Rfam assigns this 52-nucleotide sequence from Cervus elaphus to the family "mir-1302 microRNA precursor family". On this family, see Morin et al., Genome Res 2008: "Application of massively parallel sequencing to microRNA profiling and discovery in human embryonic stem cells".

RNA sequence: UUAAAUGUAUAAGUAUGUCCCAUGCAAUAUUUGGAGCAUACUUAUACUAAAA
Numbered sequence: 001u002u003a004a005a006u007g008u009a010u011a012a013g014u015a016u017g018u019c020c021c022a023u024g025c026a027a028u029a030u031u032u033g034g035a036g037c038a039u040a041c042u043u044a045u046a047c048u049a050a051a052a
Base pairs, nucleotide, nucleotide: 007047008046009045010044011043012042014040015039016038018036020034021033022031